[Rfam]
Nucleotides: 071
Base pairs, nucleotide, nucleotide: 003068004067005066006065007064008062009061010060011059012058013057014056016054017053018052019051022048023047024046025045027044028043029042
Number, partner (000 for none) and nucleotide at each position: 001000c002000c003068c004067u005066c006065a007064u008062c009061g010060c011059c012058u013057g014056a015000u016054a017053c018052u019051u020000g021000c022048u023047u024046c025045a026000a027044c028043c029042u030000g031000a032000g033000c034000a035000u036000u037000u038000g039000a040000c041000a042029a043028g044027g045025u046024g047023a048022g049000c050000a051019a052018a053017g054016u055000u056014u057013c058012a059011g060010g061009u062008g063000u064007g065006u066005g067004g068003g069000u070000g071000g